[Rfam]
RNA sequence: GCACUGGUCGGAAACCAGUGCGCGUACGAGAAGAGGAG
Dot-bracket structure: ((((((((.....)))))))).................